A member of the RNA family "Small nucleolar RNA snoR53Y" from Lactuca sativa, 77 nucleotides long. The organism belongs to Lactuca, within Eukaryota. The family's consensus secondary structure was predicted with WAR. Its family is annotated with RNA processing and nucleolus in the Gene Ontology. The family is grouped with related families in Rfam's "snoR53 clan". The literature on the family includes a 2001 paper in RNA by Brown et al., "Multiple snoRNA gene clusters from Arabidopsis".
RNA sequence: GUUCCCAAUGAUGCAUGAAUUUGACCAUGCUAAUUCUGAUUUUGAUGAUAUAUUGUUAUGUCAUUUCUGAGGGGACA
Numbered sequence: 001g002u003u004c005c006c007a008a009u010g011a012u013g014c015a016u017g018a019a020u021u022u023g024a025c026c027a028u029g030c031u032a033a034u035u036c037u038g039a040u041u042u043u044g045a046u047g048a049u050a051u052a053u054u055g056u057u058a059u060g061u062c063a064u065u066u067c068u069g070a071g072g073g074g075a076c077a
Stems, first nucleotide, its partner, number of pairs: 001076005